Shown here is a 94-nucleotide RNA sequence from Phoenix dactylifera, a member of the family "Small nucleolar RNA Z161/Z228". Rfam 15.1 lists 630 matches to the family in 214 species. Clan: SNORD35 clan. It is annotated as a C/D-box small nucleolar RNA. A reference for the family is Chen et al. (2003), "The high diversity of snoRNAs in plants: identification and comparative study of 120 snoRNA genes from Oryza sativa", Nucleic Acids Res.
RNA sequence: AGCUAGAUGAUGAGCAUGGUUUAUAAAUAUCUCACGAUGGUCAUCUGAGGCAUUCUUGGUGCCUAGAUUGAUGCAAAUCUGUUCUCUGAUGGCU
Numbered sequence: 001a002g003c004u005a006g007a008u009g010a011u012g013a014g015c016a017u018g019g020u021u022u023a024u025a026a027a028u029a030u031c032u033c034a035c036g037a038u039g040g041u042c043a044u045c046u047g048a049g050g051c052a053u054u055c056u057u058g059g060u061g062c063c064u065a066g067a068u069u070g071a072u073g074c075a076a077a078u079c080u081g082u083u084c085u086c087u088g089a090u091g092g093c094u
Stems, first nucleotide, its partner, number of pairs: 001094004051061003

The match comes from Rfam's covariance-model search (47 bits).